[Rfam]
Background
A member of the RNA family "Glutamine riboswitch aptamer (glnA leader)" from Oculatella sp. LEGE 06141, 76 nucleotides long. The base pairs follow the family's consensus structure, which is taken from published work. On this family, see Ren et al., Cell Rep 2015: "Structural and Dynamic Basis for Low-Affinity, High-Selectivity Binding of L-Glutamine by the Glutamine Riboswitch". It scores 56 bits against the family's covariance model.
RNA sequence: AACGUUCAUCCUUUCAAAGCUUUCAACAGUUUUUUUAGAAGGACGGAAGUAGGGUCAACACCCGAAGGAACGCGCC
Numbered sequence: 001a002a003c004g005u006u007c008a009u010c011c012u013u014u015c016a017a018a019g020c021u022u023u024c025a026a027c028a029g030u031u032u033u034u035u036u037a038g039a040a041g042g043a044c045g046g047a048a049g050u051a052g053g054g055u056c057a058a059c060a061c062c063c064g065a066a067g068g069a070a071c072g073c074g075c076c
Base pairs, nucleotide, nucleotide: 003072004071005070006069007068009043010042011041012040013039046073052063053062054061